Shown here is an 87-nucleotide RNA from Rhinolophus ferrumequinum, a member of the family "Small nucleolar RNA SNORD35".
Pairs were carried over by alignment from the consensus structure, which was predicted with PFOLD.
The match comes from Rfam's covariance-model search (63 bits).
U35 is a C/D box snoRNA located in intron 6 of ribosomal protein L13A and intron 3 of ribosomal protein S11 in humans and at homologous positions in mouse and chicken ribosomal protein genes.
Clan: SNORD35 clan.
The family's RNA type in Rfam is C/D-box small nucleolar RNA.
Its family is annotated with nucleolus and RNA processing in the Gene Ontology.
RNA sequence: GGCAGAGAUGCCUGUUUUCACGAUGGACUUCAGAUGCCUGCUACAGGCACUGCUGAGCAACCCACUUGGCACAACUGAUGCCAGAAG
Number, nucleotide and partner (000 for none) at each position: 001g082002g081003c080004a079005g000006a000007g000008a000009u000010g000011c000012c000013u000014g000015u000016u000017u000018u000019c000020a000021c000022g000023a000024u000025g000026g000027a000028c000029u000030u000031c000032a000033g000034a000035u000036g000037c000038c000039u000040g000041c000042u000043a000044c000045a000046g000047g000048c000049a000050c000051u000052g000053c000054u000055g000056a000057g000058c000059a000060a000061c000062c000063c000064a000065c000066u000067u000068g000069g000070c000071a000072c000073a000074a000075c000076u000077g000078a000079u004080g003081c002082c001083a000084g000085a000086a000087g000